Acido-Lenti-1 RNA: a 46-nucleotide RNA from Chthoniobacter flavus. The base pairs follow the family's consensus structure, which is taken from published work.

[Rfam]
RNA sequence: CCGGUGGCUCACGCCACCGGCUAAUUUAUGGCAAGCCUCCGGCUUG
Numbered sequence: 001c002c003g004g005u006g007g008c009u010c011a012c013g014c015c016a017c018c019g020g021c022u023a024a025u026u027u028a029u030g031g032c033a034a035g036c037c038u039c040c041g042g043c044u045u046g
Stems, first nucleotide, its partner, number of pairs: 001020008033045005

Lineage of the source: Bacteria > Chthoniobacterales > Chthoniobacteraceae > Chthoniobacter > Chthoniobacter flavus.